[Rfam]
Nucleotides: 078
Base pairs, nucleotide, nucleotide: 002077003076004075005074006073008071011068012067013066016064017063020061021060022059024058025057026056028054029053030052
Number, partner (000 for none) and nucleotide at each position: 001000a002077g003076c004075u005074u006073u007000u008071c009000g010000g011068a012067u013066c014000c015000g016064u017063g018000c019000u020061g021060a022059g023000a024058u025057u026056u027000c028054g029053u030052c031000a032000g033000a034000c035000a036000a037000c038000a039000a040000c041000c042000c043000a044000u045000u046000g047000g048000g049000g050000c051000u052030g053029a054028u055000c056026a057025g058024a059022c060021u061020u062000c063017c064016a065000a066013g067012a068011u069000a070000a071008g072000u073006g074005a075004a076003g077002u078000u
A member of the RNA family "mir-3492 microRNA precursor family" from Schistosoma mansoni, 78 nucleotides long. Gene Ontology terms of the family: miRNA-mediated post-transcriptional gene silencing and RISC complex. Taxonomically the source falls in Schistosoma (Eukaryota, Rhabditophora, Neodermata, Schistosomatidae). The base pairs follow the family's consensus structure, which was predicted with RNAalifold.